RNA sequence: ACGGGAUUUGUCCCGGAAAGGAAUGUGGCUCUCCAUUGAGCUGAACCUGAGG
Numbered sequence: 001a002c003g004g005g006a007u008u009u010g011u012c013c014c015g016g017a018a019a020g021g022a023a024u025g026u027g028g029c030u031c032u033c034c035a036u037u038g039a040g041c042u043g044a045a046c047c048u049g050a051g052g
Stems, first nucleotide, its partner, number of pairs: 002015004019048003027042005
The record is a 52-nucleotide RNA, which matches "eL15-Euryarchaeota ribosomal protein leader" in Rfam. It is annotated as a cis-regulatory leader.